[Rfam]
RNA: Plastid-psbA-3 3UTR RNA
RNA sequence: AAAGGAGCAAUAACGCACUCUUGAUAAAACAAGAGGGAAGCAAUUGCUCCCUUUUUA
Dot-bracket structure: ((.((((((((..(...((((((......))))))....)..)))))))).))....